The record is a 90-nucleotide RNA sequence from Thiohalomonas denitrificans, which matches "c-di-GMP-I-GGC riboswitch aptamer" in Rfam. Pairs were carried over by alignment from the consensus structure, which is taken from published work. Rfam links the family to the GO term cyclic-di-GMP binding. Rfam 15.1 lists 1,298 matches to the family in 717 species. Clan: c-di-GMP_I riboswitch clan.
[Rfam]
RNA sequence: CCUGAUAAAGGCAAACCUGACGAAAGUCAGGGGCGCAAAGCUACCGGUCUACGGAACCUUUCGGGUUCUAUGAUCGCGGAGCUGCCAGGU
Numbered sequence: 001c002c003u004g005a006u007a008a009a010g011g012c013a014a015a016c017c018u019g020a021c022g023a024a025a026g027u028c029a030g031g032g033g034c035g036c037a038a039a040g041c042u043a044c045c046g047g048u049c050u051a052c053g054g055a056a057c058c059u060u061u062c063g064g065g066u067u068c069u070a071u072g073a074u075c076g077c078g079g080a081g082c083u084g085c086c087a088g089g090u
Stems, first nucleotide, its partner, number of pairs: 003087002011036002016031006034076001039083004044079003047074003